[Rfam]
RNA sequence: UGCUUAUCGAGAAAGACCGAGGGAAGGGCCCUAUGACGUCUUAGCAACCUGAUCAGACAAGGUGCUAACUCCCAUCCUGAGCUUGUCAGGAAAAGAUGAGCG
Numbered sequence: 001u002g003c004u005u006a007u008c009g010a011g012a013a014a015g016a017c018c019g020a021g022g023g024a025a026g027g028g029c030c031c032u033a034u035g036a037c038g039u040c041u042u043a044g045c046a047a048c049c050u051g052a053u054c055a056g057a058c059a060a061g062g063u064g065c066u067a068a069c070u071c072c073c074a075u076c077c078u079g080a081g082c083u084u085g086u087c088a089g090g091a092a093a094a095g096a097u098g099a100g101c102g
Stems, first nucleotide, its partner, number of pairs: 001102008013042005021031003026073003043066004048062002050059002070094001075091006
RNA: SAM riboswitch aptamer (S box leader)